[Rfam]
RNA sequence: CAAGAACACUCUGGAGAGCGCGGUUUUCAAGCCGCCACCGAAGGGGCAGCGGCCCAGGCUUCAUCACCCAGCGCGCCGUAAUCUCUCAGGUACCAAGGACAGAGGGGUGAAG
Numbered sequence: 001c002a003a004g005a006a007c008a009c010u011c012u013g014g015a016g017a018g019c020g021c022g023g024u025u026u027u028c029a030a031g032c033c034g035c036c037a038c039c040g041a042a043g044g045g046g047c048a049g050c051g052g053c054c055c056a057g058g059c060u061u062c063a064u065c066a067c068c069c070a071g072c073g074c075g076c077c078g079u080a081a082u083c084u085c086u087c088a089g090g091u092a093c094c095a096a097g098g099a100c101a102g103a104g105g106g107g108u109g110a111a112g
Base pairs, nucleotide, nucleotide: 007106009104010103011102012101013100020035021034022033023032037091038090039089040087041086044085045084046083050078051077052076053075
This 112-nucleotide RNA from Thiobacillus denitrificans belongs to the Rfam family "Glycine riboswitch aptamer". The organism belongs to Thiobacillus, within Bacteria. Rfam's curators write: This family represents the bacterial glycine riboswitch.